Rfam assigns this 250-nucleotide RNA from Ktedonobacter racemifer to the family "HNH endonuclease-associated RNA and ORF (HEARO) RNA".
The family's consensus secondary structure is taken from published work.
A search with the family's covariance model found it, with a score of 114 bits.
RNA sequence: GUCAGGUACCCCAUGCCUCUGCGGCAGGGGCUUGUGAGAGCAAGCCUGAAUCUGACCAGACUCAGCCCUGGGCCUUCUGCUUCGGUGGGAGGUUAUCGAGCUACGAUAGUAUUGGGAAGUGUUGACGUUCCUACCUCCGGGUGCGUGCCAGCCUGGAGCUCUAGAAUCUCUGGGUUAAACAGGUGGAGAGGGGUGAAGCCAGUGCUCAGAGAAAAGUACCGCCCACUAUCUUUGUCGAGGCAACCAUUAC
Dot-bracket structure: (((((((..(((..((.......)).).))((((......)))).....)))))))..(((..(((.(.............................).)))..((((((...(((............((....((((((((..[[[[[.)))))))).....)).(((((((((...((.(((..(......)...))).))))))))))).........)))))))))...)))..]]].]]......
Numbered sequence: 001g002u003c004a005g006g007u008a009c010c011c012c013a014u015g016c017c018u019c020u021g022c023g024g025c026a027g028g029g030g031c032u033u034g035u036g037a038g039a040g041c042a043a044g045c046c047u048g049a050a051u052c053u054g055a056c057c058a059g060a061c062u063c064a065g066c067c068c069u070g071g072g073c074c075u076u077c078u079g080c081u082u083c084g085g086u087g088g089g090a091g092g093u094u095a096u097c098g099a100g101c102u103a104c105g106a107u108a109g110u111a112u113u114g115g116g117a118a119g120u121g122u123u124g125a126c127g128u129u130c131c132u133a134c135c136u137c138c139g140g141g142u143g144c145g146u147g148c149c150a151g152c153c154u155g156g157a158g159c160u161c162u163a164g165a166a167u168c169u170c171u172g173g174g175u176u177a178a179a180c181a182g183g184u185g186g187a188g189a190g191g192g193g194u195g196a197a198g199c200c201a202g203u204g205c206u207c208a209g210a211g212a213a214a215a216g217u218a219c220c221g222c223c224c225a226c227u228a229u230c231u232u233u234g235u236c237g238a239g240g241c242a243a244c245c246a247u248u249a250c
Stems, first nucleotide, its partner, number of pairs: 001056007010030002012027001015025002031044004059236003064102003068098001105230006114224003129165002135158008145244002147241003167212009179203002182200003187194001

It is annotated as a non-coding RNA gene. Lineage of the source: Bacteria > Chloroflexota > Ktedonobacteria > Ktedonobacter > Ktedonobacter racemifer.